Description:
Plastid-psbN 5UTR RNA: a 59-nucleotide sequence from Hibiscus syriacus. Plastid psbN is a non-coding RNA (ncRNA) recognised in plastids. It was reported as a conserved 11 stem-loop in the prime untranslated region (5UTR) of psbN genes. It has been reported that the motif is retained in a subset of mature transcripts in barley, which can suggests a possible role in transcript alternative 5 prime processing. The family's consensus secondary structure was predicted with LocARNA. By type it is a cis-regulatory element.
[Rfam]
RNA sequence: UGUGACACACAUCAAAAGAGUUGUUCCCCAUCCAGGGCUACCUUACCAUAUCUGAAUUC
Numbered sequence: 001u002g003u004g005a006c007a008c009a010c011a012u013c014a015a016a017a018g019a020g021u022u023g024u025u026c027c028c029c030a031u032c033c034a035g036g037g038c039u040a041c042c043u044u045a046c047c048a049u050a051u052c053u054g055a056a057u058u059c
Stems, first nucleotide, its partner, number of pairs: 017044002020041002023038002026036002